[Rfam]
RNA sequence: UCGGGUUUCUUGUUUUUCCAUAAGAACAAGUGGUGCGGAUGGGAUAUAUCCCGCCUGGUUUCUUAUUUCCAGUCAAAAAAUAAGUGGUGGAUCCAAAU
Numbered sequence: 001u002c003g004g005g006u007u008u009c010u011u012g013u014u015u016u017u018c019c020a021u022a023a024g025a026a027c028a029a030g031u032g033g034u035g036c037g038g039a040u041g042g043g044a045u046a047u048a049u050c051c052c053g054c055c056u057g058g059u060u061u062c063u064u065a066u067u068u069c070c071a072g073u074c075a076a077a078a079a080a081u082a083a084g085u086g087g088u089g090g091a092u093c094c095a096a097a098u
Base pairs, nucleotide, nucleotide: 009030010029011028012027013026014025015024040053041052042051043050044049055072056071057070058069062084063083064082065081066080067079
Rfam assigns this 98-nucleotide RNA sequence to the family "wcaG RNA". The sequence is in the family's curated seed alignment. It is annotated as a cis-regulatory element. The family's consensus secondary structure is taken from published work.